[Rfam]
RNA sequence: UCACUUUCAAGAGUGGCAAAGUCUUUCCGUAUGUGUAGCAUAUAUACACACAUAUGGAAAGACUUUGCCACUCUUGAAAGUGA
Numbered sequence: 001u002c003a004c005u006u007u008c009a010a011g012a013g014u015g016g017c018a019a020a021g022u023c024u025u026u027c028c029g030u031a032u033g034u035g036u037a038g039c040a041u042a043u044a045u046a047c048a049c050a051c052a053u054a055u056g057g058a059a060a061g062a063c064u065u066u067g068c069c070a071c072u073c074u075u076g077a078a079a080g081u082g083a
Stems, first nucleotide, its partner, number of pairs: 001083007009075026
RNA: mir-3688 microRNA precursor family